Shown here is a 137-nucleotide RNA sequence from Caenorhabditis latens, a member of the family "Nematode snoRNA ceN105". The base pairs follow the family's consensus structure, which was predicted with RNAalifold. Taxonomically the source falls in Caenorhabditis (Eukaryota, Opisthokonta, Nematoda, Rhabditida).

[Rfam]
RNA sequence: UAUUGUCGUGAAUCUUGUUUGAAGCGUUGAUUUUACUCGUAUCGAAUGUAAAGGCCGACAUAGAUAAAAUUCGACUAUAAUUUUUGAAAAAUCCACUAGUUUCAAAGAUUUUUCAAAGUGAUAAAUGUCGAACACAU
Numbered sequence: 001u002a003u004u005g006u007c008g009u010g011a012a013u014c015u016u017g018u019u020u021g022a023a024g025c026g027u028u029g030a031u032u033u034u035a036c037u038c039g040u041a042u043c044g045a046a047u048g049u050a051a052a053g054g055c056c057g058a059c060a061u062a063g064a065u066a067a068a069a070u071u072c073g074a075c076u077a078u079a080a081u082u083u084u085u086g087a088a089a090a091a092u093c094c095a096c097u098a099g100u101u102u103c104a105a106a107g108a109u110u111u112u113u114c115a116a117a118g119u120g121a122u123a124a125a126u127g128u129c130g131a132a133c134a135c136a137u
Stems, first nucleotide, its partner, number of pairs: 004060005010055001016048007024040003030034001070132006078124001080119001084116006096107001